The record is a 117-nucleotide sequence from Tetrahymena elliotti, which matches "Tetrahymena snoRNA TtnuHACA16" in Rfam.
Rfam classes the family as an H/ACA-box small nucleolar RNA.
Taxonomically the source falls in Tetrahymena elliotti (Eukaryota, Alveolata, Oligohymenophorea, Tetrahymena).
Pairs were carried over by alignment from the consensus structure, which was predicted with mfold.

RNA sequence: CAACGGUAUCACAUACAUAGUGUAUUGUUAACAAAUUUAUGCAGACAUUGAAUAUUGAGAGUCUACACAUGUUCUUUCUCUUCAUGAAAGAACGUGCAAAAAAAUCAAUUACAAUUU
Numbered sequence: 001c002a003a004c005g006g007u008a009u010c011a012c013a014u015a016c017a018u019a020g021u022g023u024a025u026u027g028u029u030a031a032c033a034a035a036u037u038u039a040u041g042c043a044g045a046c047a048u049u050g051a052a053u054a055u056u057g058a059g060a061g062u063c064u065a066c067a068c069a070u071g072u073u074c075u076u077u078c079u080c081u082u083c084a085u086g087a088a089a090g091a092a093c094g095u096g097c098a099a100a101a102a103a104a105u106c107a108a109u110u111a112c113a114a115u116u117u
Stems, first nucleotide, its partner, number of pairs: 002029007010022003047115004054109005068096009079087002